This 81-nucleotide RNA sequence from Thermoclostridium stercorarium belongs to the Rfam family "S10-Clostridia ribosomal protein leader". It scores 39 bits against the family's covariance model. Pairs were carried over by alignment from the consensus structure, which is taken from published work.
[Rfam]
RNA sequence: GGCAUACGAUGAAGUUGGAGAUUGCCGGAAUUCCGGGGAACUUCAACGGAGAAUGUCCGAUUCGUAGAAACCGGGCGACAA
Numbered sequence: 001g002g003c004a005u006a007c008g009a010u011g012a013a014g015u016u017g018g019a020g021a022u023u024g025c026c027g028g029a030a031u032u033c034c035g036g037g038g039a040a041c042u043u044c045a046a047c048g049g050a051g052a053a054u055g056u057c058c059g060a061u062u063c064g065u066a067g068a069a070a071c072c073g074g075g076c077g078a079c080a081a
Base pairs, nucleotide, nucleotide: 014047015046016045018044019043020042025036026035027034028033054080055079056078057077061075062074063073